[Rfam]
RNA sequence: GGCACGUGCUUAAUGAGUACAUGCUUCAUACUGCUGUGCCAGCAUCGUUUAAUUGGUGCUGAAUACUAGUUGCACUAAGCAAGUUAUGAUUCUCCAGUAUGAGUAAAAACUACCGUUUGGGCUGCGUGAGAUGCGCCGGGUCCACC
Numbered sequence: 001g002g003c004a005c006g007u008g009c010u011u012a013a014u015g016a017g018u019a020c021a022u023g024c025u026u027c028a029u030a031c032u033g034c035u036g037u038g039c040c041a042g043c044a045u046c047g048u049u050u051a052a053u054u055g056g057u058g059c060u061g062a063a064u065a066c067u068a069g070u071u072g073c074a075c076u077a078a079g080c081a082a083g084u085u086a087u088g089a090u091u092c093u094c095c096a097g098u099a100u101g102a103g104u105a106a107a108a109a110c111u112a113c114c115g116u117u118u119g120g121g122c123u124g125c126g127u128g129a130g131a132u133g134c135g136c137c138g139g140g141u142c143c144a145c146c
Base pairs, nucleotide, nucleotide: 001025002024003023004022006020007019008018009017010016030084031083032082033080034079035078036075037074038073039072040061041060042059043058044057045056046055092103093102094101118144119143120142121141122140123139124136125135126134127133